[Rfam]
RNA sequence: GCGGAUGAAAUCUAGGGUUCCGGUCUACGGGACGACUGGUCCAAGAGAUUUCAGCCGGCUCUGCCGGCACACGGAGGGAUAAAAGCCCGGGAGAC
Numbered sequence: 001g002c003g004g005a006u007g008a009a010a011u012c013u014a015g016g017g018u019u020c021c022g023g024u025c026u027a028c029g030g031g032a033c034g035a036c037u038g039g040u041c042c043a044a045g046a047g048a049u050u051u052c053a054g055c056c057g058g059c060u061c062u063g064c065c066g067g068c069a070c071a072c073g074g075a076g077g078g079a080u081a082a083a084a085g086c087c088c089g090g091g092a093g094a095c
Stems, first nucleotide, its partner, number of pairs: 007052006015042002020039002022036001023033003054068005070090001072093001076088003
RNA: Guanidine-I riboswitch aptamer